[Rfam]
RNA sequence: UGCGAUGAGUCGAGAAAUCACACAGCAUUUAUGCUGUCGCGCAAGCGAUUAAUGUGAAUUCGAGCGGGACACAAUUUAAGGCACAGAUUUGCUGGUGUUUGACUUUAGCGGAUUGUGGAAUCC
Numbered sequence: 001u002g003c004g005a006u007g008a009g010u011c012g013a014g015a016a017a018u019c020a021c022a023c024a025g026c027a028u029u030u031a032u033g034c035u036g037u038c039g040c041g042c043a044a045g046c047g048a049u050u051a052a053u054g055u056g057a058a059u060u061c062g063a064g065c066g067g068g069a070c071a072c073a074a075u076u077u078a079a080g081g082c083a084c085a086g087a088u089u090u091g092c093u094g095g096u097g098u099u100u101g102a103c104u105u106u107a108g109c110g111g112a113u114u115g116u117g118g119a120a121u122c123c
Base pairs, nucleotide, nucleotide: 018057019056020055021054022053023036024035025034026033027032037048038047039046040045068099069098070097071096072095080093081092082091083090111122112121113120114119
RNA: Enterococcus sRNA 68 (Lacto-3 RNA)
Organism: Lentilactobacillus buchneri